A member of the RNA family "ZMP/ZTP riboswitch aptamer (pfl RNA motif)" from Clostridium oryzae, 77 nucleotides long. The family's consensus secondary structure is taken from published work.

RNA sequence: UAAGAGUCAUAUGACUGACGGAUGUGGAUUACCACAAGGGAGUAUGACGGAAAAGGCCGACCGUCUGGGCAAACCAC
Number, nucleotide and partner (000 for none) at each position: 001u000002a000003a000004g000005a000006g048007u047008c046009a045010u044011a043012u042013g000014a000015c039016u038017g065018a064019c063020g062021g061022a000023u000024g035025u034026g033027g032028a000029u000030u000031a000032c027033c026034a025035c024036a000037a000038g016039g015040g000041a000042g012043u011044a010045u009046g008047a007048c006049g000050g000051a000052a000053a000054a000055g000056g070057c069058c068059g000060a000061c021062c020063g019064u018065c017066u000067g000068g058069g057070c056071a000072a000073a000074c000075c000076a000077c000